[Rfam]
Nucleotides: 135
Base pairs, nucleotide, nucleotide: 003061004060005059006058007057016047017046018045019044021042023040024039072128073127074126075125077124080121081120082119092111093110094109095108096107
Number, partner (000 for none) and nucleotide at each position: 001000g002000c003061g004060c005059a006058c007057a008000c009000c010000c011000g012000u013000a014000g015000a016047c017046c018045u019044u020000a021042c022000c023040u024039g025000a026000c027000u028000c029000u030000g031000u032000c033000u034000a035000u036000a037000g038000u039024c040023a041000a042021g043000c044019a045018g046017g047016g048000g049000g050000g051000a052000c053000a054000g055000u056000a057007u058006g059005u060004g061003c062000c063000a064000g065000a066000g067000g068000a069000a070000a071000c072128a073127g074126a075125g076000c077124u078000u079000c080121u081120g082119u083000g084000a085000g086000c087000u088000a089000u090000g091000g092111c093110c094109a095108g096107c097000a098000u099000c100000a101000u102000c103000a104000a105000u106000g107096g108095c109094u110093g111092g112000u113000u114000g115000u116000a117000u118000u119082g120081c121080a122000u123000u124077a125075c126074u127073c128072u129000a130000a131000c132000a133000u134000c135000u
This 135-nucleotide sequence from Vombatus ursinus belongs to the Rfam family "Small nucleolar RNA SNORA58". Clan: SNORA44 clan. The organism belongs to Vombatus, within Eukaryota. About the family: ACA52 is a member of the H/ACA class of snoRNA that guide the sites of modification of uridines to pseudouridines. For this family Rfam cites "RNomics: an experimental approach that identifies 201 candidates for novel, small, non-messenger RNAs in mouse" (Huttenhofer et al., EMBO J, 2001). Rfam 15.1 lists 471 matches to the family in 320 species. The match comes from Rfam's covariance-model search (116 bits).